Rfam assigns this 132-nucleotide sequence from Vicugna pacos to the family "Small nucleolar RNA SNORA71". About the family: The members of this family belong to the H/ACA class of snoRNAs which bind a number of proteins (including dyskerin, Gar1p and Nop10p) to form snoRNP complexes. This class of snoRNAs are thought to guide the sites of modification of uridines to pseudouridines by forming direct base pairing interactions with substrate RNAs. The match comes from Rfam's covariance-model search (102 bits). It is annotated as an H/ACA-box small nucleolar RNA. On this family, see Ganot et al., Genes Dev 1997: "The family of box ACA small nucleolar RNAs is defined by an evolutionarily conserved secondary structure and ubiquitous sequence elements essential for RNA accumulation". Rfam 15.1 lists 1,805 matches to the family in 606 species.
RNA sequence: CCCUGCAUUCGAAAGUGAUCGUGGGCUGCCUGUGCACUUGUCCUUGGUAGUGUGGGGAGAGGAAUUGCUGAAAGUGUUUCCCCGUGUUUAAGGGUUCAUCCUGUCCCUUUCAAAUUCUGGACCUUUCCCGCA
Numbered sequence: 001c002c003c004u005g006c007a008u009u010c011g012a013a014a015g016u017g018a019u020c021g022u023g024g025g026c027u028g029c030c031u032g033u034g035c036a037c038u039u040g041u042c043c044u045u046g047g048u049a050g051u052g053u054g055g056g057g058a059g060a061g062g063a064a065u066u067g068c069u070g071a072a073a074g075u076g077u078u079u080c081c082c083c084g085u086g087u088u089u090a091a092g093g094g095u096u097c098a099u100c101c102u103g104u105c106c107c108u109u110u111c112a113a114a115u116u117c118u119g120g121a122c123c124u125u126u127c128c129c130g131c132a
Stems, first nucleotide, its partner, number of pairs: 001057009014045002017042003021038001023037001025035002067129001070127005086115004090109005